Shown here is a 267-nucleotide sequence from Caryophanon tenue, a member of the family "Bacterial large signal recognition particle RNA". The family's RNA type in Rfam is non-coding RNA gene. A search with the family's covariance model found it, with a score of 210 bits. The signal recognition particle (SRP) is a universally conserved ribonucleoprotein involved in the co-translational targeting of proteins to membranes. NCBI's taxonomy places the organism under Bacteria, Bacillota, Caryophanales, Caryophanaceae, Caryophanon. The base pairs follow the family's consensus structure, which is taken from published work.
[Rfam]
RNA sequence: CCGUGCUAGGUGGGGAGGUAGCGGUGCCCUGUAACUUGCAAUCCGCUCUAGCAAGACUGAAUUCCUAUUCGAGGCUGUCCGUAUUGUUUGGUCUGCCUUCUGCACGUAGUGUUGACGACCGGGUCCUGCGCAAUGGGACAUUAUGAACCAUGUCAGGUCCGGAAGGAAGCAGCAUUAAGUAAUCCAUCCCAUGUGCCGUGGGGUUGCCUGGUCCGAGCUGGCGACAGGAGUAACGCUUAUGUGCGGCUGUCAGAAAUAGGUGCGCGG
Numbered sequence: 001c002c003g004u005g006c007u008a009g010g011u012g013g014g015g016a017g018g019u020a021g022c023g024g025u026g027c028c029c030u031g032u033a034a035c036u037u038g039c040a041a042u043c044c045g046c047u048c049u050a051g052c053a054a055g056a057c058u059g060a061a062u063u064c065c066u067a068u069u070c071g072a073g074g075c076u077g078u079c080c081g082u083a084u085u086g087u088u089u090g091g092u093c094u095g096c097c098u099u100c101u102g103c104a105c106g107u108a109g110u111g112u113u114g115a116c117g118a119c120c121g122g123g124u125c126c127u128g129c130g131c132a133a134u135g136g137g138a139c140a141u142u143a144u145g146a147a148c149c150a151u152g153u154c155a156g157g158u159c160c161g162g163a164a165g166g167a168a169g170c171a172g173c174a175u176u177a178a179g180u181a182a183u184c185c186a187u188c189c190c191a192u193g194u195g196c197c198g199u200g201g202g203g204u205u206g207c208c209u210g211g212u213c214c215g216a217g218c219u220g221g222c223g224a225c226a227g228g229a230g231u232a233a234c235g236c237u238u239a240u241g242u243g244c245g246g247c248u249g250u251c252a253g254a255a256a257u258a259g260g261u262g263c264g265c266g267g
Stems, first nucleotide, its partner, number of pairs: 001267006009058003012030004017025001019023001035055005064260006073251003077247001080245005086240002090236001094232002098229005106222002108219003117213008125202006131193002134191005140183005150175004158167003